[Rfam]
RNA sequence: GCGCAUGGUUAUCCAAGAGCUGCAGCUCCGACCAGUAGCUCCAGCUCUCCAACAACAUGCCAGAGCAACAGGAAGGUCUUUGACUGCUGGGCCUCUUCUGCCUCUUGCUGUCACUCGCCCCUCCUAUAGAU
Numbered sequence: 001g002c003g004c005a006u007g008g009u010u011a012u013c014c015a016a017g018a019g020c021u022g023c024a025g026c027u028c029c030g031a032c033c034a035g036u037a038g039c040u041c042c043a044g045c046u047c048u049c050c051a052a053c054a055a056c057a058u059g060c061c062a063g064a065g066c067a068a069c070a071g072g073a074a075g076g077u078c079u080u081u082g083a084c085u086g087c088u089g090g091g092c093c094u095c096u097u098c099u100g101c102c103u104c105u106u107g108c109u110g111u112c113a114c115u116c117g118c119c120c121c122u123c124c125u126a127u128a129g130a131u
Stems, first nucleotide, its partner, number of pairs: 013044001018040006071124003075120002086111002089104001090102002